This 98-nucleotide RNA sequence from Rhynchospora breviuscula belongs to the Rfam family "Small nucleolar RNA Z157/R69/R10". Rfam classes the family as a C/D-box small nucleolar RNA. Gene Ontology terms of the family: RNA processing and nucleolus. The base pairs follow the family's consensus structure, which was predicted with PFOLD.
RNA sequence: GGGGUUGCUAUGAGGAUAAAUUUGAAAUUGGAUAGUGUUUCUGAUUUGGGUUCUUACCCAUUAGUUGAAGACUCACCCUUGGCUGUCUGAGCACCUCU
Numbered sequence: 001g002g003g004g005u006u007g008c009u010a011u012g013a014g015g016a017u018a019a020a021u022u023u024g025a026a027a028u029u030g031g032a033u034a035g036u037g038u039u040u041c042u043g044a045u046u047u048g049g050g051u052u053c054u055u056a057c058c059c060a061u062u063a064g065u066u067g068a069a070g071a072c073u074c075a076c077c078c079u080u081g082g083c084u085g086u087c088u089g090a091g092c093a094c095c096u097c098u
Base pairs, nucleotide, nucleotide: 001098002097003096004095006093007092008091038070039069040068041067045063047060048059049058050057
Dot-bracket structure: ((((.(((.............................((((...(.((((......))))..)...))))....................))).))))

The organism belongs to Rhynchospora, within Eukaryota. For this family Rfam cites "The high diversity of snoRNAs in plants: identification and comparative study of 120 snoRNA genes from Oryza sativa" (Chen et al., Nucleic Acids Res, 2003). The family is grouped with related families in Rfam's "SNORD52 clan".